[Rfam]
RNA sequence: AUUGCUCACUCUCCCUCAAGGGCUUCUAGCAUUGCCAAUAACAAAAUGGCAAGCCCGAAGUCUUUGGGGAGAGUGGACAA
Numbered sequence: 001a002u003u004g005c006u007c008a009c010u011c012u013c014c015c016u017c018a019a020g021g022g023c024u025u026c027u028a029g030c031a032u033u034g035c036c037a038a039u040a041a042c043a044a045a046a047u048g049g050c051a052a053g054c055c056c057g058a059a060g061u062c063u064u065u066g067g068g069g070a071g072a073g074u075g076g077a078c079a080a
Stems, first nucleotide, its partner, number of pairs: 006076010017066010
The family of this 80-nucleotide RNA sequence from Vitis rotundifolia is "MIR473 microRNA precursor family". For this family Rfam cites "Novel and mechanical stress-responsive MicroRNAs in Populus trichocarpa that are absent from Arabidopsis" (Lu et al., Plant Cell, 2005).